[Rfam]
RNA sequence: CUGCAAUCAAUUAAACCAGUUGGACUUCUCUCCUCAUGGGGCCCACUGGGCAAUAGCUGCAAACAGCAGCCUUCUUUGGUAGUGGAUGCAGACCUGUUGCUUAUAUAGAUUGCUAUAAUGGACCAUGGAGACAGUC
Numbered sequence: 001c002u003g004c005a006a007u008c009a010a011u012u013a014a015a016c017c018a019g020u021u022g023g024a025c026u027u028c029u030c031u032c033c034u035c036a037u038g039g040g041g042c043c044c045a046c047u048g049g050g051c052a053a054u055a056g057c058u059g060c061a062a063a064c065a066g067c068a069g070c071c072u073u074c075u076u077u078g079g080u081a082g083u084g085g086a087u088g089c090a091g092a093c094c095u096g097u098u099g100c101u102u103a104u105a106u107a108g109a110u111u112g113c114u115a116u117a118a119u120g121g122a123c124c125a126u127g128g129a130g131a132c133a134g135u136c
Base pairs, nucleotide, nucleotide: 002052003051004050019047021045022044025041026040027039028038078124079123080122089112090111091110094108095107
Dot-bracket structure: .(((..............(.((..((((.........))))..)).)..))).........................(((........(((..((...........)).))).........)))............